[Rfam]
RNA sequence: UAGUUUAUUUAAGAUAAAUUAUCAUCUAGCCAUGAAAUAUCCAUGUCCAAAUACUCACAAUUAUUAGUUUCUAUUAAUCUCACUAUAUCAUAGAAAAUAUGUGUAGCUAUUGGUUUGAUGUGUAUUGGAUACAUA
Numbered sequence: 001u002a003g004u005u006u007a008u009u010u011a012a013g014a015u016a017a018a019u020u021a022u023c024a025u026c027u028a029g030c031c032a033u034g035a036a037a038u039a040u041c042c043a044u045g046u047c048c049a050a051a052u053a054c055u056c057a058c059a060a061u062u063a064u065u066a067g068u069u070u071c072u073a074u075u076a077a078u079c080u081c082a083c084u085a086u087a088u089c090a091u092a093g094a095a096a097a098u099a100u101g102u103g104u105a106g107c108u109a110u111u112g113g114u115u116u117g118a119u120g121u122g123u124a125u126u127g128g129a130u131a132c133a134u135a
Stems, first nucleotide, its partner, number of pairs: 004133001006131004012125001014123002018119002024114002027109004

MIR480 microRNA precursor family: a 135-nucleotide RNA from Salix brachista. The match comes from Rfam's covariance-model search (43 bits). The family has 69 seed sequences and 3,070 matches in Rfam 15.1.